[Rfam]
RNA sequence: UAUUAGUAAUGGCAAAACUGUCGAAAGGCAGCGACGCAAAGCUAAAGGGCCGUAUGGGCAGCCAGCUGCUAAA
Numbered sequence: 001u002a003u004u005a006g007u008a009a010u011g012g013c014a015a016a017a018c019u020g021u022c023g024a025a026a027g028g029c030a031g032c033g034a035c036g037c038a039a040a041g042c043u044a045a046a047g048g049g050c051c052g053u054a055u056g057g058g059c060a061g062c063c064a065g066c067u068g069c070u071a072a073a
Stems, first nucleotide, its partner, number of pairs: 012037002018031005040067004047063002049059003
Dot-bracket structure: ...........((....(((((....)))))....))..((((...(((((.....)))..))))))......

c-di-GMP-I riboswitch aptamer: a 73-nucleotide sequence from Hungatella hathewayi.
It scores 60 bits against the family's covariance model.
NCBI's taxonomy places the organism under Bacteria, Bacillota, Clostridia, Lachnospirales, Hungatella.